[Rfam]
RNA: Bacillaceae-1 RNA
RNA sequence: CAAAAAGGUUCUUCUACUAAGAUCGCAAACGUCCUGUUCUCGGACGUUGAAGUCACCACAUCCUGUGGA
Numbered sequence: 001c002a003a004a005a006a007g008g009u010u011c012u013u014c015u016a017c018u019a020a021g022a023u024c025g026c027a028a029a030c031g032u033c034c035u036g037u038u039c040u041c042g043g044a045c046g047u048u049g050a051a052g053u054c055a056c057c058a059c060a061u062c063c064u065g066u067g068g069a
Stems, first nucleotide, its partner, number of pairs: 011052004016047002028038003056068004